RNA: mir-124 microRNA precursor family
RNA sequence: UUCUCCUAGUGUUCACUGUGGGCCUGUAUGUUCAUUUAAUCAUAAGGCACGCGGUGAAUGCCAAGAGCA
Number, nucleotide and partner (000 for none) at each position: 001u000002u000003c067004u066005c065006c000007u000008a000009g061010u060011g059012u058013u057014c056015a055016c054017u000018g052019u051020g050021g000022g000023c047024c046025u045026g000027u044028a043029u042030g041031u000032u000033c000034a000035u000036u000037u000038a000039a000040u000041c030042a029043u028044a027045a025046g024047g023048c000049a000050c020051g019052c018053g000054g016055u015056g014057a013058a012059u011060g010061c009062c000063a000064a000065g005066a004067g003068c000069a000